[Rfam]
RNA sequence: GGCCCAUCUAUUGCUUAUUAACAAUCCCAGGUAGCCAAAGGCGGUUGCCACCCUUCACGACAAAGACGUCGC
Numbered sequence: 001g002g003c004c005c006a007u008c009u010a011u012u013g014c015u016u017a018u019u020a021a022c023a024a025u026c027c028c029a030g031g032u033a034g035c036c037a038a039a040g041g042c043g044g045u046u047g048c049c050a051c052c053c054u055u056c057a058c059g060a061c062a063a064a065g066a067c068g069u070c071g072c
Stems, first nucleotide, its partner, number of pairs: 030049007